[Rfam]
RNA sequence: CGGGGGGCUCGCUAUAACGCCGCGAGCUGAGAUGAGAGGGGCAAACCUCUCGACCCGAAGAACCUGAUCCGGGUAAUGCCGGCGUAGGGA
Numbered sequence: 001c002g003g004g005g006g007g008c009u010c011g012c013u014a015u016a017a018c019g020c021c022g023c024g025a026g027c028u029g030a031g032a033u034g035a036g037a038g039g040g041g042c043a044a045a046c047c048u049c050u051c052g053a054c055c056c057g058a059a060g061a062a063c064c065u066g067a068u069c070c071g072g073g074u075a076a077u078g079c080c081g082g083c084g085u086a087g088g089g090a
Stems, first nucleotide, its partner, number of pairs: 001057004006051001007027005035050004063088004069082004

A member of the RNA family "TPP riboswitch aptamer (THI element)" from Alkalispirochaeta americana, 90 nucleotides long. About the family: Vitamin B(1) in its active form thiamin pyrophosphate (TPP) is an essential coenzyme that is synthesised by coupling of pyrimidine and thiazole moieties in bacteria. The family's consensus secondary structure is taken from published work. Lineage of the source: Bacteria > Pseudomonadati > Spirochaetota > Spirochaetaceae > Alkalispirochaeta. Rfam 15.1 lists 16,130 matches to the family in 8,693 species.